[Rfam]
RNA sequence: UACAUCCUGCGAUGUACGUUUCGGUCUUUCGUUGUUUUGAACCAAUGAUGAAGUCUCGGGAGAUCUACAUUAGGCGCCGCGAUGAAAAGCCCUGUCUAUAUGACAUGGGGACUUCAAAGCCCGUCUUGCGGUCACCCACCUGCGAUAGCAGGUUCGAGACAAUGUUACCGGACGGCAGAGCGGGAUCUCU
Numbered sequence: 001u002a003c004a005u006c007c008u009g010c011g012a013u014g015u016a017c018g019u020u021u022c023g024g025u026c027u028u029u030c031g032u033u034g035u036u037u038u039g040a041a042c043c044a045a046u047g048a049u050g051a052a053g054u055c056u057c058g059g060g061a062g063a064u065c066u067a068c069a070u071u072a073g074g075c076g077c078c079g080c081g082a083u084g085a086a087a088a089g090c091c092c093u094g095u096c097u098a099u100a101u102g103a104c105a106u107g108g109g110g111a112c113u114u115c116a117a118a119g120c121c122c123g124u125c126u127u128g129c130g131g132u133c134a135c136c137c138a139c140c141u142g143c144g145a146u147a148g149c150a151g152g153u154u155c156g157a158g159a160c161a162a163u164g165u166u167a168c169c170g171g172a173c174g175g176c177a178g179a180g181c182g183g184g185a186u187c188u189c190u
Stems, first nucleotide, its partner, number of pairs: 002188001004186007013177003017174003033161004038156006058137003062133004069127001072126005079120001085114002090110005
This 190-nucleotide sequence from Saccharibacillus sacchari belongs to the Rfam family "6S / SsrS RNA".
The organism belongs to Saccharibacillus sacchari, within Bacteria.